[Rfam]
RNA sequence: CAUAUAUUUUAUGAUGGUAGAUUUGUAAACCCCUAACGGGAGGGAUUGUGCCUGAUAUUCAUAUG
Numbered sequence: 001c002a003u004a005u006a007u008u009u010u011a012u013g014a015u016g017g018u019a020g021a022u023u024u025g026u027a028a029a030c031c032c033c034u035a036a037c038g039g040g041a042g043g044g045a046u047u048g049u050g051c052c053u054g055a056u057a058u059u060c061a062u063a064u065g
Stems, first nucleotide, its partner, number of pairs: 001065005016052004020047005031040003

Background: This 65-nucleotide RNA from Mytilus coruscus belongs to the Rfam family "Selenocysteine insertion sequence 1". The base pairs follow the family's consensus structure, which is taken from published work. The incorporation of selenocysteine into a protein sequence is directed by an in-frame UGA codon (usually a stop codon) within the coding region of the mRNA. Selenoprotein mRNAs contain a conserved secondary structure in the 3' UTR that is required for the distinction of UGA stop from UGA selenocysteine. The selenocysteine insertion sequence (SECIS) is around 60 nt in length and adopts a hairpin structure which is sufficiently well-defined and conserved to act as a computational screen for selenoprotein genes. It scores 36 bits against the family's covariance model.